[Rfam]
RNA sequence: AAGUAACUACCGCGUUGGUGACUGCCAACAACGUUUUUUGAUCUAUGCUUGAAAAAUAAGGGUGUCUCUGUGCAUUCUGCGUGGUAGUAGACCGGGCUCGUACCCGGAAACGAAAACGAGAAUUGAUGACUCCCCCCUGGUUACACCAGGUCAUAAACUGAGGUAAAACGGCGUGGUGGUGCUUCU
Dot-bracket structure: .((..((((((((((..((...............(((.(((((................(((.(((..(....(((((.((.....((...(((((......)))))..)).....))))))).)..))).)))..............))))).)))..........)).))))))))))..))..